Rfam assigns this 220-nucleotide sequence from Acutalibacter sp. 1XD8-33 to the family "RT-2 RNA". The family's consensus secondary structure is taken from published work. NCBI's taxonomy places the organism under Bacteria, Bacillota, Eubacteriales, Acutalibacteraceae, Acutalibacter. It scores 168 bits against the family's covariance model. It is annotated as a small RNA.

RNA sequence: AUAGGUCAAACGGAGUAGCUGAAAAGUGAAAGACGACCUCUUCAGAAGGAGAGAUGCUUCCCGGUCGUAAGGCCGAAAGUGCCCUUUGACGCCCUUGCACGGACGCUGCUUGCAUGGCGGGUGGAUGUGCCCUAUCCCGUUUCAUGUGCUGGGGCAAAGCAGAUUAGACGGCACCCUACAAGAUAUCUGUUCGGAGGAGCGAAUCAUUUUGACAAGCGAA
Numbered sequence: 001a002u003a004g005g006u007c008a009a010a011c012g013g014a015g016u017a018g019c020u021g022a023a024a025a026g027u028g029a030a031a032g033a034c035g036a037c038c039u040c041u042u043c044a045g046a047a048g049g050a051g052a053g054a055u056g057c058u059u060c061c062c063g064g065u066c067g068u069a070a071g072g073c074c075g076a077a078a079g080u081g082c083c084c085u086u087u088g089a090c091g092c093c094c095u096u097g098c099a100c101g102g103a104c105g106c107u108g109c110u111u112g113c114a115u116g117g118c119g120g121g122u123g124g125a126u127g128u129g130c131c132c133u134a135u136c137c138c139g140u141u142u143c144a145u146g147u148g149c150u151g152g153g154g155c156a157a158a159g160c161a162g163a164u165u166a167g168a169c170g171g172c173a174c175c176c177u178a179c180a181a182g183a184u185a186u187c188u189g190u191u192c193g194g195a196g197g198a199g200c201g202a203a204u205c206a207u208u209u210u211g212a213c214a215a216g217c218g219a220a
Base pairs, nucleotide, nucleotide: 004038005037006036007035019026020025063074064073065072066071081200082199083197084196085195086194087193088192091155092154093153094152095151097149098148099147100146105113106112116141117140118139119138120137121136159190160189161188162187163186165185166177167176